[Rfam]
RNA sequence: UCUUUAUCGAGAGUGGUGGAGGGGAAGGCCCUGUGAAACCACAGCAACCGAUUCGCCGGAGGCGAAUGCCAGGUGCUAAUUCCUGCCCCGCAUGGGGAGAGAUGAGGG
Numbered sequence: 001u002c003u004u005u006a007u008c009g010a011g012a013g014u015g016g017u018g019g020a021g022g023g024g025a026a027g028g029c030c031c032u033g034u035g036a037a038a039c040c041a042c043a044g045c046a047a048c049c050g051a052u053u054c055g056c057c058g059g060a061g062g063c064g065a066a067u068g069c070c071a072g073g074u075g076c077u078a079a080u081u082c083c084u085g086c087c088c089c090g091c092a093u094g095g096g097g098a099g100a101g102a103u104g105a106g107g108g
Base pairs, nucleotide, nucleotide: 001108002107003106004105005104006103007102008101013042014041015040016039017038021031022030023029026084027083028082043077044076045075046074048073049072050069053066081100086097087096088095089094
Shown here is a 108-nucleotide RNA sequence from Syntrophotalea acetylenivorans, a member of the family "SAM riboswitch aptamer (S box leader)". The source organism's lineage runs through Bacteria, Pseudomonadati, Thermodesulfobacteriota, Syntrophotaleaceae and Syntrophotalea. A search with the family's covariance model found it, with a score of 78 bits.